c-di-AMP riboswitch aptamer (ydaO/yuaA leader): a 171-nucleotide RNA from Streptomyces sp. SID7982. Rfam describes the family as follows. This family represents a conserved RNA structure found upstream of the ydaO and yuaA genes in Bacillus subtilis and related genes in other bacteria. The ydaO/yuaA element is thought to act as a genetic 'off' switch for the ydaO and yuaA genes in its native state. Lineage of the source: Bacteria > Bacillati > Actinomycetes > Streptomycetaceae > Streptomyces.
[Rfam]
RNA sequence: GACAGGUCGACACCGAGUGGAUCGGCGGGAGUGGAGGACCCAGGCACGACGGGCCCGGCAGACCGGUGACGGUCUCCCACGGCCCUUGGGGUGAAGCCGCCGCGGCGGCCGGGCGACUUCGCAGGUCCGAACCCGACAGGUCAUCCUUCACAGGCGGCUGACGAAGGGUUA
Numbered sequence: 001g002a003c004a005g006g007u008c009g010a011c012a013c014c015g016a017g018u019g020g021a022u023c024g025g026c027g028g029g030a031g032u033g034g035a036g037g038a039c040c041c042a043g044g045c046a047c048g049a050c051g052g053g054c055c056c057g058g059c060a061g062a063c064c065g066g067u068g069a070c071g072g073u074c075u076c077c078c079a080c081g082g083c084c085c086u087u088g089g090g091g092u093g094a095a096g097c098c099g100c101c102g103c104g105g106c107g108g109c110c111g112g113g114c115g116a117c118u119u120c121g122c123a124g125g126u127c128c129g130a131a132c133c134c135g136a137c138a139g140g141u142c143a144u145c146c147u148u149c150a151c152a153g154g155c156g157g158c159u160g161a162c163g164a165a166g167g168g169u170u171a
Stems, first nucleotide, its partner, number of pairs: 006155003013029002031151006041088004089134003097108004111128004